[Rfam]
The family of this 98-nucleotide sequence from Pseudobacteroides cellulosolvens is "pan motif".
RNA sequence: UCGGCGGUAUCUAUAUUAAAAGUGUUAAUUGAACUGCACGGAUAAAUAAACAUUAUUUUUGCAAACUGCUUUGAGCCCUAAGGGACAGAGACAGGUCA
Numbered sequence: 001u002c003g004g005c006g007g008u009a010u011c012u013a014u015a016u017u018a019a020a021a022g023u024g025u026u027a028a029u030u031g032a033a034c035u036g037c038a039c040g041g042a043u044a045a046a047u048a049a050a051c052a053u054u055a056u057u058u059u060u061g062c063a064a065a066c067u068g069c070u071u072u073g074a075g076c077c078c079u080a081a082g083g084g085a086c087a088g089a090g091a092c093a094g095g096u097c098a
Stems, first nucleotide, its partner, number of pairs: 001041003004037005010032002066094003069090005076084002